Rfam assigns this 85-nucleotide RNA from Gadus morhua to the family "Small nucleolar RNA SNORD60".
The family's RNA type in Rfam is C/D-box small nucleolar RNA.
Taxonomically the source falls in Gadus (Eukaryota, Gnathostomata, Osteoglossocephalai, Gadidae).
The family's consensus secondary structure was predicted with PFOLD.
RNA sequence: AGCCACUGAUGACCACCUUUUAUUACUGACAUCUCGUAUGAUGGCUAGUCAAUAGCACAAUGCUCUGUUUUAAUUUCUGAGGCUU
Numbered sequence: 001a002g003c004c005a006c007u008g009a010u011g012a013c014c015a016c017c018u019u020u021u022a023u024u025a026c027u028g029a030c031a032u033c034u035c036g037u038a039u040g041a042u043g044g045c046u047a048g049u050c051a052a053u054a055g056c057a058c059a060a061u062g063c064u065c066u067g068u069u070u071u072a073a074u075u076u077c078u079g080a081g082g083c084u085u
Stems, first nucleotide, its partner, number of pairs: 001084004044056004